[Rfam]
RNA sequence: GGUUUUAACCCAGUUAAUUGAGGUUAGCAAUAAUUUCGACCUUUCGAAAGAUUGUGUUGAAUGACAAUAAUUUUUGGAACGACUCCUUCGGGGAUAUCCGAUGAAGCAAA
Dot-bracket structure: ......((....((.(((....))).)).....)).(((((..((....))..).))))........................(.(((((.((....))..))))).)..
Shown here is a 110-nucleotide sequence from Caenorhabditis elegans, a member of the family "SL2 RNA". This family represents SL2 RNA. SL2 RNA is involved in trans splicing in lower eukaryotes. Trans-splicing is a form of RNA processing. The acquisition of a spliced leader from a SL RNA is a intra-molecular reaction which precisely joins exons derived from separately transcribed RNAs. Approximately 25% of C. elegans genes are organised into polycistronic transcription units and the presence of SL2 on an mRNA is an indication the the gene is in an operon. The source organism's lineage runs through Eukaryota, Ecdysozoa, Nematoda, Rhabditina and Caenorhabditis. The sequence is in the family's curated seed alignment. The family's consensus secondary structure is taken from published work. The family is grouped with related families in Rfam's "SL clan". It is annotated as a non-coding RNA gene.